[Rfam]
RNA sequence: ACGUCCUGCCUCGUGAUCGUCUUCUCACCCUUCGCGCGGGCAGGCGGAUGAACGGAAGACCCCGCGAGGACGUGACUCGCGGGGUCUUCCC
Numbered sequence: 001a002c003g004u005c006c007u008g009c010c011u012c013g014u015g016a017u018c019g020u021c022u023u024c025u026c027a028c029c030c031u032u033c034g035c036g037c038g039g040g041c042a043g044g045c046g047g048a049u050g051a052a053c054g055g056a057a058g059a060c061c062c063c064g065c066g067a068g069g070a071c072g073u074g075a076c077u078c079g080c081g082g083g084g085u086c087u088u089c090c091c
Base pairs, nucleotide, nucleotide: 002046003045005044006043007042008041009040010039011038013035014034015033016032019029054090055089056088057087058086059085060084061083062082063081064080065079066078067077068076
Dot-bracket structure: .((.(((((((.((((..(.........)..))))..))))))))).......(((((((((((((((.......))))))))))))))).
The record is a 91-nucleotide RNA sequence from Streptomyces roseochromogenus, which matches "sodF sRNA" in Rfam. The literature on the family includes a 2014 paper in Nucleic Acids Res by Kim et al., "Inverse regulation of Fe- and Ni-containing SOD genes by a Fur family regulator Nur through small RNA processed from 3'UTR of the sodF mRNA". The match comes from Rfam's covariance-model search (89 bits). Pairs were carried over by alignment from the consensus structure.